[Rfam]
RNA sequence: GGGAUAUGAUGAGUGGUCUGAGUCUUGCAAUAAAAAUGCAAGUUGGGUGUUCGCCCCAAGCCUGGUUACGACAAUUGGGCACUCUCCUUUAAUCA
Numbered sequence: 001g002g003g004a005u006a007u008g009a010u011g012a013g014u015g016g017u018c019u020g021a022g023u024c025u026u027g028c029a030a031u032a033a034a035a036a037u038g039c040a041a042g043u044u045g046g047g048u049g050u051u052c053g054c055c056c057c058a059a060g061c062c063u064g065g066u067u068a069c070g071a072c073a074a075u076u077g078g079g080c081a082c083u084c085u086c087c088u089u090u091a092a093u094c095a
Base pairs, nucleotide, nucleotide: 014095015094016093017092024042025041026040027039028038045084046083047082048081049080050079051078063077064076065075066074

Shown here is a 95-nucleotide RNA from Trifolium pratense, a member of the family "Small nucleolar RNA Z279/snoR105/snoR108". Pairs were carried over by alignment from the consensus structure, which was predicted with PFOLD. Rfam describes the family as follows. This family includes the plant snoRNAs known as Z279, snoR105 and snoR108. NCBI's taxonomy places the organism under Eukaryota, Tracheophyta, eudicotyledons, Hologalegina, Trifolium. Rfam 15.1 lists 906 matches to the family in 223 species. The family is grouped with related families in Rfam's "snoU13 clan". It scores 68 bits against the family's covariance model. By type it is a C/D-box small nucleolar RNA.